The record is a 124-nucleotide RNA from Pelusios castaneus, which matches "U4atac minor spliceosomal RNA" in Rfam. About the family: U4atac is an essential component of the minor U12-type spliceosome complex which is required for removal of the rarer class of eukaryotic introns (AT-AC, U12-type). The base pairs follow the family's consensus structure, which is taken from published work. Rfam classes the family as a spliceosomal small nuclear RNA. Gene Ontology terms of the family: mRNA 5'-splice site recognition, spliceosomal tri-snRNP complex assembly and U4atac snRNP. The family is grouped with related families in Rfam's "U4 clan". Rfam 15.1 lists 1,648 matches to the family in 818 species.
RNA sequence: ACCAUCCUUGUCUUGGGGUUGCGCCGCUGUCCGAUGAACGGCUAGUGAGGACAGUGCUGCUGACGCCACAACAACACUUCGCGCCCGGAGGCUUCGGCUUUAAUGUGGUGCAAUUUUUGGAACC
Numbered sequence: 001a002c003c004a005u006c007c008u009u010g011u012c013u014u015g016g017g018g019u020u021g022c023g024c025c026g027c028u029g030u031c032c033g034a035u036g037a038a039c040g041g042c043u044a045g046u047g048a049g050g051a052c053a054g055u056g057c058u059g060c061u062g063a064c065g066c067c068a069c070a071a072c073a074a075c076a077c078u079u080c081g082c083g084c085c086c087g088g089a090g091g092c093u094u095c096g097g098c099u100u101u102a103a104u105g106u107g108g109u110g111c112a113a114u115u116u117u118u119g120g121a122a123c124c
Base pairs, nucleotide, nucleotide: 006018007017008016009015021060022059023058026055027054028053029052030051031050032049038046039045081111082110083109084108085107086105088101089100090099091098092097